Shown here is a 91-nucleotide RNA from Tropicimonas sediminicola, a member of the family "Glycine riboswitch aptamer". The pairing is the family consensus, mapped onto this sequence. Taxonomically the source falls in Tropicimonas (Bacteria, Pseudomonadati, Rhodobacterales, Roseobacteraceae). The match comes from Rfam's covariance-model search (64 bits).
RNA sequence: AAACCCCGCGUCGGGAGAAUCCGGUCACUGACCGGUGCCGAAGGAGCAACCGCCCCGGUAAACUCUCAGGCUCAAGGACCGCACGGGGACA
Numbered sequence: 001a002a003a004c005c006c007c008g009c010g011u012c013g014g015g016a017g018a019a020u021c022c023g024g025u026c027a028c029u030g031a032c033c034g035g036u037g038c039c040g041a042a043g044g045a046g047c048a049a050c051c052g053c054c055c056c057g058g059u060a061a062a063c064u065c066u067c068a069g070g071c072u073c074a075a076g077g078a079c080c081g082c083a084c085g086g087g088g089a090c091a
Base pairs, nucleotide, nucleotide: 006086007085008084010082012081013080014079021035022034023033024032037071038070039069040067041066044065045064046063050058051057